[Rfam]
RNA: small nucleolar RNA snoR126
Organism: Cucumis sativus
RNA sequence: AGGCAGUGAUGACAAACAAAUUCAUUUCUCGAAUCUGAAUACUGUACUGUGUUAAUUCACAGACGGACCUUCGAAUUUACUUGAUUUGAUGACAGCGUUUGUGCGUGUCUGAGCCUU
Numbered sequence: 001a002g003g004c005a006g007u008g009a010u011g012a013c014a015a016a017c018a019a020a021u022u023c024a025u026u027u028c029u030c031g032a033a034u035c036u037g038a039a040u041a042c043u044g045u046a047c048u049g050u051g052u053u054a055a056u057u058c059a060c061a062g063a064c065g066g067a068c069c070u071u072c073g074a075a076u077u078u079a080c081u082u083g084a085u086u087u088g089a090u091g092a093c094a095g096c097g098u099u100u101g102u103g104c105g106u107g108u109c110u111g112a113g114c115c116u117u
Stems, first nucleotide, its partner, number of pairs: 001116004